A member of the RNA family "LOOT RNA", 117 nucleotides long. The base pairs follow the family's consensus structure, which is taken from published work. By type it is a small RNA.

Nucleotides: 117
Stems, first nucleotide, its partner, number of pairs: 002033003009027007041081009055071004083102008104117002107114002
Number, partner (000 for none) and nucleotide at each position: 001000a002033g003032c004031c005000u006000a007000a008000a009027c010026u011025c012024a013023u014022a015021g016000a017000u018000u019000u020000a021015c022014u023013a024012u025011g026010g027009g028000c029000a030000u031004g032003g033002c034000a035000a036000a037000a038000a039000a040000a041081c042080g043079c044078a045077c046076g047075a048074a049073g050000a051000u052000a053000a054000a055071g056070a057069c058068c059000c060000c061000a062000u063000c064000a065000u066000c067000a068058g069057g070056u071055c072000g073049c074048u075047u076046c077045g078044u079043g080042c081041g082000u083102u084101a085100u086099g087098c088097a089096g090095g091000g092000a093000a094000a095090c096089c097088u098087g099086c100085a101084u102083a103000u104117g105116a106000a107114c108113c109000g110000c111000a112000a113108g114107g115000c116105u117104c